RNA sequence: GCCAUCAGAGGGCAAAGCAUGGGCAACCGUGUGACGCAAAGCCACCUGUCCAAUGCUGUUUUGGAAAGAGGGGUUGUAAGA
Numbered sequence: 001g002c003c004a005u006c007a008g009a010g011g012g013c014a015a016a017g018c019a020u021g022g023g024c025a026a027c028c029g030u031g032u033g034a035c036g037c038a039a040a041g042c043c044a045c046c047u048g049u050c051c052a053a054u055g056c057u058g059u060u061u062u063g064g065a066a067a068g069a070g071g072g073g074u075u076g077u078a079a080g081a
Base pairs, nucleotide, nucleotide: 012037013036017032018031019030020029021028022027040075041074042073043072045071046070047069049065050064051063052062053061
Rfam assigns this 81-nucleotide sequence from Oryzomonas rubra to the family "c-di-GMP-I riboswitch aptamer".